RNA sequence: GCCGAGGGAUCCCCAGAACCAGACAUGGCAGGAGCGGGGGAACCACCUUCGGGCGCCAGCGAUGGCGUCCUCGGGGUGAAGCCCGAGGGACCUCGGUCCCGACGGCCGGGUGCUUUCUCCCACCCGAACCCGACAGCUCACUUCGUAGGCGACAGGAGAGGGAACAC
Dot-bracket structure: (((......(((..................)))((((((....(............................)(((.....((....................))..((((..........))))...))).........)))))).))).................

This 167-nucleotide RNA from Isoptericola variabilis belongs to the Rfam family "c-di-AMP riboswitch aptamer (ydaO/yuaA leader)". Pairs were carried over by alignment from the consensus structure. Lineage of the source: Bacteria > Bacillati > Actinomycetes > Micrococcales > Isoptericola variabilis.